Shown here is a 132-nucleotide sequence from Panthera leo, a member of the family "Small nucleolar RNA SNORA69". Gene Ontology terms of the family: nucleolus and RNA processing. U69 is a member of the H/ACA class of small nucleolar RNAs (snoRNAs) which act as guides in the the modification of uridines to pseudouridines. The family's consensus secondary structure was predicted with PFOLD. The match comes from Rfam's covariance-model search (150 bits).

[Rfam]
RNA sequence: AAAGCAGGUUGCAAUUACAGUGCUUCGUUUUGUGGAAGUACUGACAUUAUCCUGCUGAAAGAAAAACAGUGUUGGUCAUUUUUGAUUUUGCCUCUCUAAGGGUAAAAUCAGGACAGAUUGACACGGACAAUU
Numbered sequence: 001a002a003a004g005c006a007g008g009u010u011g012c013a014a015u016u017a018c019a020g021u022g023c024u025u026c027g028u029u030u031u032g033u034g035g036a037a038g039u040a041c042u043g044a045c046a047u048u049a050u051c052c053u054g055c056u057g058a059a060a061g062a063a064a065a066a067c068a069g070u071g072u073u074g075g076u077c078a079u080u081u082u083u084g085a086u087u088u089u090g091c092c093u094c095u096c097u098a099a100g101g102g103u104a105a106a107a108u109c110a111g112g113a114c115a116g117a118u119u120g121a122c123a124c125g126g127a128c129a130a131u132u
Base pairs, nucleotide, nucleotide: 003056004055005054006053007052008051018043019042020041021040022039023038024037025036026035067126069124070123071122072121073120074119075118076117077116083110084109085108086107087106088105089104090103091102092101093100